This 77-nucleotide sequence from Ophiophagus hannah belongs to the Rfam family "mir-196 microRNA precursor family".
Rfam links the family to the GO terms RISC complex and gene silencing by miRNA.
A reference for the family is Lim et al. (2003), "Vertebrate microRNA genes", Science.
The sequence is in the family's curated seed alignment.
Rfam 15.1 lists 1,813 matches to the family in 642 species.

RNA sequence: UCGGUGAUUUAGGUAGUUUCUCGUUGUUGAGGCUGAACAUUCCUCUCUCUGCAGCACGAAACUGCCUUCAUCACCUC
Numbered sequence: 001u002c003g004g005u006g007a008u009u010u011a012g013g014u015a016g017u018u019u020c021u022c023g024u025u026g027u028u029g030a031g032g033c034u035g036a037a038c039a040u041u042c043c044u045c046u047c048u049c050u051g052c053a054g055c056a057c058g059a060a061a062c063u064g065c066c067u068u069c070a071u072c073a074c075c076u077c
Stems, first nucleotide, its partner, number of pairs: 003075006011067009023055005029049003
Dot-bracket structure: ..((((((..(((((((((...(((((.(((...............))).)))))...)))))))))..))))))..